[Rfam]
The record is a 446-nucleotide part of an RNA from Psychroflexus salarius, which matches "Bacterial large subunit ribosomal RNA" in Rfam. It scores 2730 bits against the family's covariance model.
RNA sequence: CUCCCCGAAAUGCAUUUAGGUGCAGCGAUAGUGAUAGUUUUAUAGAGGUAGAGCUACUGAUUGGAUGCGGGGGCUUCACCGCCUACCAAUUCCUGACAAACUCCGAAUGCUAUAAAAUGUUAACUAUCAGUGAGGGCAUGGGUGCUAAGGUCCAUGUCCGAGAGGGAAAGAACCCAGAGCAUCAGCUAAGGUCCCUAAAUAUAUACUAAGUUGAAUAAACGCGGUCUAACUGCAUAGACAGCUAGGAUGUUGGCUUGGAAGCAGCCAUUCAUUUAAAGAGUGCGUAACAGCUCACUAGUCGAGCGGUCAGGCAUGGAUAAUAAUCGGGCAUAAGUAUAUUACCGAAGCUAUGCUUUCAUAGAUAUAAUUUAUGAGAGGUAGGGGAGCAUUCUAAACGGCGUAGAAGGUGUACUGUAAGGUAUUCUGGAGUGUUUAGAAAAGAAAAU
Numbered sequence: 001c002u003c004c005c006c007g008a009a010a011u012g013c014a015u016u017u018a019g020g021u022g023c024a025g026c027g028a029u030a031g032u033g034a035u036a037g038u039u040u041u042a043u044a045g046a047g048g049u050a051g052a053g054c055u056a057c058u059g060a061u062u063g064g065a066u067g068c069g070g071g072g073g074c075u076u077c078a079c080c081g082c083c084u085a086c087c088a089a090u091u092c093c094u095g096a097c098a099a100a101c102u103c104c105g106a107a108u109g110c111u112a113u114a115a116a117a118u119g120u121u122a123a124c125u126a127u128c129a130g131u132g133a134g135g136g137c138a139u140g141g142g143u144g145c146u147a148a149g150g151u152c153c154a155u156g157u158c159c160g161a162g163a164g165g166g167a168a169a170g171a172a173c174c175c176a177g178a179g180c181a182u183c184a185g186c187u188a189a190g191g192u193c194c195c196u197a198a199a200u201a202u203a204u205a206c207u208a209a210g211u212u213g214a215a216u217a218a219a220c221g222c223g224g225u226c227u228a229a230c231u232g233c234a235u236a237g238a239c240a241g242c243u244a245g246g247a248u249g250u251u252g253g254c255u256u257g258g259a260a261g262c263a264g265c266c267a268u269u270c271a272u273u274u275a276a277a278g279a280g281u282g283c284g285u286a287a288c289a290g291c292u293c294a295c296u297a298g299u300c301g302a303g304c305g306g307u308c309a310g311g312c313a314u315g316g317a318u319a320a321u322a323a324u325c326g327g328g329c330a331u332a333a334g335u336a337u338a339u340u341a342c343c344g345a346a347g348c349u350a351u352g353c354u355u356u357c358a359u360a361g362a363u364a365u366a367a368u369u370u371a372u373g374a375g376a377g378g379u380a381g382g383g384g385a386g387c388a389u390u391c392u393a394a395a396c397g398g399c400g401u402a403g404a405a406g407g408u409g410u411a412c413u414g415u416a417a418g419g420u421a422u423u424c425u426g427g428a429g430u431g432u433u434u435a436g437a438a439a440a441g442a443a444a445a446u
Stems, first nucleotide, its partner, number of pairs: 001386006011024005026130001027128006036121001037118009051104001052102002058098002063093003069087002071084004134159010164175003179353004184349003190343003199340001201339006220315002224312004229307005241299005247272003252266003273277001278293001282291002354376008387441001389438007398430002406425002409422005